[Rfam]
RNA sequence: UAAAAGAGAAUUAAAUGACCUCAUAUAAUCUUGGGAAUAUGGCCCAUAAGUUUCUACCUGGCUACCGUAAAUGGCUGGACUAUGAGGAAGUGAACGUUUCUG
Numbered sequence: 001u002a003a004a005a006g007a008g009a010a011u012u013a014a015a016u017g018a019c020c021u022c023a024u025a026u027a028a029u030c031u032u033g034g035g036a037a038u039a040u041g042g043c044c045c046a047u048a049a050g051u052u053u054c055u056a057c058c059u060g061g062c063u064a065c066c067g068u069a070a071a072u073g074g075c076u077g078g079a080c081u082a083u084g085a086g087g088a089a090g091u092g093a094a095c096g097u098u099u100c101u102g
Stems, first nucleotide, its partner, number of pairs: 019087007029049001032046004058078007

A member of the RNA family "Purine riboswitch aptamer" from Mangrovibacillus cuniculi, 102 nucleotides long. NCBI's taxonomy places the organism under Bacteria, Bacillota, Bacilli, Caryophanales, Mangrovibacillus. A search with the family's covariance model found it, with a score of 88 bits.